[Rfam]
RNA: Small nucleolar RNA ACA64
RNA sequence: ACAGUCUGAAAAUCGCCUGUGGUCUUCUCCAGUGGCCUCUGGUGAGAUAACAGUGCCAACAGCAAAGGGAGCAUUUAGCUUAUUGCCCACAAGCUUUGUGUGUGGGGGAUGAAACCCGUGCUCCUAUAACU
Numbered sequence: 001a002c003a004g005u006c007u008g009a010a011a012a013u014c015g016c017c018u019g020u021g022g023u024c025u026u027c028u029c030c031a032g033u034g035g036c037c038u039c040u041g042g043u044g045a046g047a048u049a050a051c052a053g054u055g056c057c058a059a060c061a062g063c064a065a066a067g068g069g070a071g072c073a074u075u076u077a078g079c080u081u082a083u084u085g086c087c088c089a090c091a092a093g094c095u096u097u098g099u100g101u102g103u104g105g106g107g108g109a110u111g112a113a114a115c116c117c118g119u120g121c122u123c124c125u126a127u128a129a130c131u
Stems, first nucleotide, its partner, number of pairs: 006053003010048001013045004021037004068124001070122005080112005088102003